This 218-nucleotide sequence from Miscanthus lutarioriparius belongs to the Rfam family "MIR6217 microRNA precursor family". The base pairs follow the family's consensus structure, which was predicted with RNAalifold. Rfam 15.1 lists 2,266 matches to the family in 13 species. The match comes from Rfam's covariance-model search (151 bits).
RNA sequence: UAGCCUUUAUUCUGUAGCCACUUUGAGUUACGAUAAUUAUUGUACUAAUUUAUAAGAUUACAAUAACUCCUUAGUAAGUGGUUUAUUAUAACAUUACGGUAAAUAUCUCCGUGUAUUAUAGUAACUCAACUAUCAUAAAUAUGUAUUUAUUUUAUCGUAAAUCAGUAUACAAAUUAUCGUAAAUAGAGGUGGCUAUAGAAUAACUUAUUCUGUAGCUG
Numbered sequence: 001u002a003g004c005c006u007u008u009a010u011u012c013u014g015u016a017g018c019c020a021c022u023u024u025g026a027g028u029u030a031c032g033a034u035a036a037u038u039a040u041u042g043u044a045c046u047a048a049u050u051u052a053u054a055a056g057a058u059u060a061c062a063a064u065a066a067c068u069c070c071u072u073a074g075u076a077a078g079u080g081g082u083u084u085a086u087u088a089u090a091a092c093a094u095u096a097c098g099g100u101a102a103a104u105a106u107c108u109c110c111g112u113g114u115a116u117u118a119u120a121g122u123a124a125c126u127c128a129a130c131u132a133u134c135a136u137a138a139a140u141a142u143g144u145a146u147u148u149a150u151u152u153u154a155u156c157g158u159a160a161a162u163c164a165g166u167a168u169a170c171a172a173a174u175u176a177u178c179g180u181a182a183a184u185a186g187a188g189g190u191g192g193c194u195a196u197a198g199a200a201u202a203a204c205u206u207a208u209u210c211u212g213u214a215g216c217u218g
Stems, first nucleotide, its partner, number of pairs: 002208001007203018028182011041169006048162006056156003060152001062150001063148001065146001071138003078133006084123008093114002098108002